Shown here is an 86-nucleotide RNA sequence from Deinococcus aerius, a member of the family "ZMP/ZTP riboswitch aptamer (pfl RNA motif)". It scores 52 bits against the family's covariance model.
[Rfam]
Nucleotides: 086
Base pairs, nucleotide, nucleotide: 005053006052007051008050009049010048011047012046015043016042017074018073019072020071021070027039028038029037030036063081064080065079066078067077
Number, partner (000 for none) and nucleotide at each position: 001000a002000c003000g004000g005053c006052g007051g008050g009049u010048g011047g012046c013000g014000a015043c016042u017074g018073g019072c020071g021070c022000u023000g024000a025000a026000c027039g028038u029037g030036g031000g032000c033000g034000a035000a036030c037029c038028a039027c040000g041000g042016g043015g044000a045000a046012g047011c048010c049009a050008c051007c052006c053005g054000g055000a056000c057000c058000a059000a060000a061000c062000c063081u064080g065079a066078u067077c068000g069000c070021g071020c072019g073018c074017c075000u076000g077067g078066g079065u080064c081063g082000g083000a084000c085000g086000c

The base pairs follow the family's consensus structure, which is taken from published work.